[Rfam]
The family of this 89-nucleotide RNA sequence from Triticum aestivum is "MIR5200 microRNA precursor family". Lineage of the source: Eukaryota > Streptophytina > Embryophyta > Triticodae > Triticum.
RNA sequence: UAAUUAAGCCUUAGUGAAUAUCUACACUAGUAAGUUUUUCUUCAUGUUUGAAAUGCUUAGCAUUGUAGAUACUCCCUAAGGCUUGGGUG
Numbered sequence: 001u002a003a004u005u006a007a008g009c010c011u012u013a014g015u016g017a018a019u020a021u022c023u024a025c026a027c028u029a030g031u032a033a034g035u036u037u038u039u040c041u042u043c044a045u046g047u048u049u050g051a052a053a054u055g056c057u058u059a060g061c062a063u064u065g066u067a068g069a070u071a072c073u074c075c076c077u078a079a080g081g082c083u084u085g086g087g088u089g
Stems, first nucleotide, its partner, number of pairs: 004086011016074002019071008031059005037053004
Rfam links the family to the GO terms miRNA-mediated post-transcriptional gene silencing and RISC complex.